[Rfam]
The family of this 309-nucleotide sequence from a Thermoplasmata archaeon is "Archaeal signal recognition particle RNA".
RNA sequence: CGUCUGGCUUGACCGGGGCGCUUGGCGUGCCCUAUACCCGAAAUCGUCAAUACGCGGGGGUGACAGCAGGGGACGGCCCCGCUGAACAUCACAAGCCCACAGAGCGACAAUGAAAUCUUGUCCUGCAGAGUCGGAGUUUGCGCCGAAUGCGACCGGAGGGCCGCAGUUCACGCAUCAACCGGGGGAACCGGGUCAGGUCCUGACGGGAGCAGCCUCACCUCGGACUACUGACGUUUGCGGGAUCGCAGGGUCGAGGAGCGAAGUGGCAAACUUGUGGUCGGAUGCAGGGACAACCCCUGUGGCCAGGCG
Numbered sequence: 001c002g003u004c005u006g007g008c009u010u011g012a013c014c015g016g017g018g019c020g021c022u023u024g025g026c027g028u029g030c031c032c033u034a035u036a037c038c039c040g041a042a043a044u045c046g047u048c049a050a051u052a053c054g055c056g057g058g059g060g061u062g063a064c065a066g067c068a069g070g071g072g073a074c075g076g077c078c079c080c081g082c083u084g085a086a087c088a089u090c091a092c093a094a095g096c097c098c099a100c101a102g103a104g105c106g107a108c109a110a111u112g113a114a115a116u117c118u119u120g121u122c123c124u125g126c127a128g129a130g131u132c133g134g135a136g137u138u139u140g141c142g143c144c145g146a147a148u149g150c151g152a153c154c155g156g157a158g159g160g161c162c163g164c165a166g167u168u169c170a171c172g173c174a175u176c177a178a179c180c181g182g183g184g185g186a187a188c189c190g191g192g193u194c195a196g197g198u199c200c201u202g203a204c205g206g207g208a209g210c211a212g213c214c215u216c217a218c219c220u221c222g223g224a225c226u227a228c229u230g231a232c233g234u235u236u237g238c239g240g241g242a243u244c245g246c247a248g249g250g251u252c253g254a255g256g257a258g259c260g261a262a263g264u265g266g267c268a269a270a271c272u273u274g275u276g277g278u279c280g281g282a283u284g285c286a287g288g289g290a291c292a293a294c295c296c297c298u299g300u301g302g303c304c305a306g307g308c309g
Base pairs, nucleotide, nucleotide: 001309002308003307004306005305006304007303008302009301010063012061013060014059015033016032017031018030019029020028021027037058038057039056040055066300067299068298069297070296071295072294076291078289079288080287081285082284088278089277090276091275092274093273094272095271097266098265099264100263104259105258108255115251116250117249118248119247120246121245122241123240124239125238126237127236128235129234130232131231132230133229134228135226136225139174140173141172142171145168146167148165149164150163151162153160154159179223180222181221182220183219184218190215191214192213193212198207199206200205
A search with the family's covariance model found it, with a score of 170 bits.
For this family Rfam cites "Towards the structure of the mammalian signal recognition particle" (Wild et al., Curr Opin Struct Biol, 2002).